Description
Shown here is a 122-nucleotide RNA from Kitasatospora sp. Root187, a member of the family "Streptomyces-metH RNA".
RNA sequence: ACGCUCAGGAUGCGAAACGGGUUCUCGGCCUGGGCGUGCAGCCGGAUACCCUGACCGCGUGCGGCCCGUACACGGACGGGCUGCAUAGCCGACAGCCGUCGCACCCAGGGAGUAGCCACAUG
Number, nucleotide and partner (000 for none) at each position: 001a000002c000003g000004c000005u000006c000007a000008g000009g000010a000011u000012g000013c000014g000015a000016a000017a000018c000019g000020g000021g000022u000023u000024c000025u000026c000027g000028g000029c000030c000031u000032g000033g000034g000035c000036g000037u000038g000039c000040a000041g000042c000043c000044g000045g000046a000047u000048a000049c000050c000051c000052u000053g000054a000055c000056c000057g000058c000059g000060u085061g084062c083063g082064g000065c080066c079067c078068g077069u000070a000071c000072a000073c000074g000075g000076a000077c068078g067079g066080g065081c000082u063083g062084c061085a060086u000087a000088g102089c101090c000091g100092a099093c098094a000095g000096c000097c000098g093099u092100c091101g089102c088103a000104c000105c000106c000107a000108g000109g000110g000111a000112g000113u000114a000115g000116c000117c000118a000119c000120a000121u000122g000
The match comes from Rfam's covariance-model search (79 bits). Rfam classes the family as a small RNA.